A member of the RNA family "SmY spliceosomal RNA" from Panagrolaimus davidi, 85 nucleotides long. For this family Rfam cites "A novel family of C. elegans snRNPs contains proteins associated with trans-splicing" (MacMorris et al., RNA, 2007).
[Rfam]
RNA sequence: AAUUGUGAAAAGUAAAAUACAGGGUCUUUCACAAGUCCCGGUGUAAAAUUUUUGGAAGGCUUUUUGGUUUUUUCUAAAAAGCUUA
Numbered sequence: 001a002a003u004u005g006u007g008a009a010a011a012g013u014a015a016a017a018u019a020c021a022g023g024g025u026c027u028u029u030c031a032c033a034a035g036u037c038c039c040g041g042u043g044u045a046a047a048a049u050u051u052u053u054g055g056a057a058g059g060c061u062u063u064u065u066g067g068u069u070u071u072u073u074c075u076a077a078a079a080a081g082c083u084u085a
Stems, first nucleotide, its partner, number of pairs: 022039003026035003057084011